Trypanosomatid mitochondrial small subunit ribosomal RNA: a 627-nucleotide RNA sequence from Leishmania major. Rfam's curators put it in the seed alignment. The family is grouped with related families in Rfam's "SSU clan".
[Rfam]
RNA sequence: AAUAAAAUAAGUCAAUUGUUAUUAUUCAUAUUAAUUUUUUUAAAAGUUUUUUAAUUUUAUAUUAGUUUAUUUGUUUAAAAAGUAUCUAAUUAAUUCAUUAUUUAGGAAUAGUUAAUAAUAAUUUAUAAUUCUGAUUAGAUUUGUUUGUUAAUGCUAUUAAAGGGGUGUGGAAAAAGUGUUAAAUUUUUGAUAUAUUUAAAUAAUAAAUAAAACAUAACUUAUUAGUCCGAAAUGGAUGCCCGCCGUUGCGGGAAUUUCCAUGCUUUUAAAUAUUAUACAUUUAUUUUAUAAAUUUGUUACUAUAUAUUUUUAGUCAAUAAAACUAAUAAUUAUUUUUAUUUGUUUUUAAACACCGUUUGGUAUAUGCAAAUAAAAAAUGACAUUAAUUAUUAAUUAUAUUAUAUUAUAUUUAUUCAUUUAAGUCAACAAUAUCUAUUUACUGUUUUUGACAACAUGAUAAGGAUUAUAAAUGGUAUUGCAAAUUUUAUAAUCAAAACUAAUUUAUUAUAUUAAAUUAGCAUGUUUAGAUAAAACAAUAAAUUUAGAAGGUAUUGUUGCCCACCAUUCUUUGUAAUAAAGACAACGUGCAGUAAUUAAUGUAUUUAUAAAAAUAUAUUUUUUCAUGUU
Numbered sequence: 001a002a003u004a005a006a007a008u009a010a011g012u013c014a015a016u017u018g019u020u021a022u023u024a025u026u027c028a029u030a031u032u033a034a035u036u037u038u039u040u041u042a043a044a045a046g047u048u049u050u051u052u053a054a055u056u057u058u059a060u061a062u063u064a065g066u067u068u069a070u071u072u073g074u075u076u077a078a079a080a081a082g083u084a085u086c087u088a089a090u091u092a093a094u095u096c097a098u099u100a101u102u103u104a105g106g107a108a109u110a111g112u113u114a115a116u117a118a119u120a121a122u123u124u125a126u127a128a129u130u131c132u133g134a135u136u137a138g139a140u141u142u143g144u145u146u147g148u149u150a151a152u153g154c155u156a157u158u159a160a161a162g163g164g165g166u167g168u169g170g171a172a173a174a175a176g177u178g179u180u181a182a183a184u185u186u187u188u189g190a191u192a193u194a195u196u197u198a199a200a201u202a203a204u205a206a207a208u209a210a211a212a213c214a215u216a217a218c219u220u221a222u223u224a225g226u227c228c229g230a231a232a233u234g235g236a237u238g239c240c241c242g243c244c245g246u247u248g249c250g251g252g253a254a255u256u257u258c259c260a261u262g263c264u265u266u267u268a269a270a271u272a273u274u275a276u277a278c279a280u281u282u283a284u285u286u287u288a289u290a291a292a293u294u295u296g297u298u299a300c301u302a303u304a305u306a307u308u309u310u311u312a313g314u315c316a317a318u319a320a321a322a323c324u325a326a327u328a329a330u331u332a333u334u335u336u337u338a339u340u341u342g343u344u345u346u347u348a349a350a351c352a353c354c355g356u357u358u359g360g361u362a363u364a365u366g367c368a369a370a371u372a373a374a375a376a377a378u379g380a381c382a383u384u385a386a387u388u389a390u391u392a393a394u395u396a397u398a399u400u401a402u403a404u405u406a407u408a409u410u411u412a413u414u415c416a417u418u419u420a421a422g423u424c425a426a427c428a429a430u431a432u433c434u435a436u437u438u439a440c441u442g443u444u445u446u447u448g449a450c451a452a453c454a455u456g457a458u459a460a461g462g463a464u465u466a467u468a469a470a471u472g473g474u475a476u477u478g479c480a481a482a483u484u485u486u487a488u489a490a491u492c493a494a495a496a497c498u499a500a501u502u503u504a505u506u507a508u509a510u511u512a513a514a515u516u517a518g519c520a521u522g523u524u525u526a527g528a529u530a531a532a533a534c535a536a537u538a539a540a541u542u543u544a545g546a547a548g549g550u551a552u553u554g555u556u557g558c559c560c561a562c563c564a565u566u567c568u569u570u571g572u573a574a575u576a577a578a579g580a581c582a583a584c585g586u587g588c589a590g591u592a593a594u595u596a597a598u599g600u601a602u603u604u605a606u607a608a609a610a611a612u613a614u615a616u617u618u619u620u621u622c623a624u625g626u627u
Base pairs, nucleotide, nucleotide: 015591016590017589018588036081037080038079039078040077042075043074044072045071046070047069051065052064053063054062055061106415107414108413109412110411111410113406114405115404116403117402118397119396120395121394122393123392125390126389127388128387129386130385135380136379137378140374141373142372143371144370145369146368147367148366151363152362153361154360155359156358164354165353166352167351168350171347172346173345174344175343176341188299189298190297191296192295202285203284204283205282206281207280208279219269220268221267224264225263226262229258230257231256232255233254237253239251240250242249243248316340317339318338319337320336321335322334324332435541436540437539438538439537441535442534443533444532445531446530451525452524453522454521455520456519462492463491464490465489466488467487468486469485470484497518498517499516500515501514502513503512504511548559549558550557551556560587561586562585566580567579568578569577570576571575596617597616598615599614600613601612602611603610604609